[Rfam]
RNA sequence: AGUUUCAGUUUUGCAAGAUAAAAAUUUCUGGAGAUUUUAGUGGCUAUGCUUAUGGGAUAGAUUAAGAUUGCCAUGAUCUGAAGAGGGAGGAUUUAUUUGUGUCCUCCUCCUAUAUGAAAUGGCUGAACAGAAAAAA
Dot-bracket structure: (.........((((.........................)))).........)................((((..............((((................))))........)))).............
The record is a 136-nucleotide sequence from Myotis davidii, which matches "Small nucleolar RNA SNORA29" in Rfam.
Rfam classes the family as an H/ACA-box small nucleolar RNA.
Rfam 15.1 lists 960 matches to the family in 621 species.
ACA29 is a member of the H/ACA class of snoRNA that guide the sites of modification of uridines to pseudouridines.
The literature on the family includes a 2001 paper in EMBO J by Huttenhofer et al., "RNomics: an experimental approach that identifies 201 candidates for novel, small, non-messenger RNAs in mouse".
Clan: SNORA20 clan.
It scores 108 bits against the family's covariance model.
Lineage of the source: Eukaryota > Gnathostomata > Boreoeutheria > Chiroptera > Myotis.
Rfam links the family to the GO terms RNA processing and nucleolus.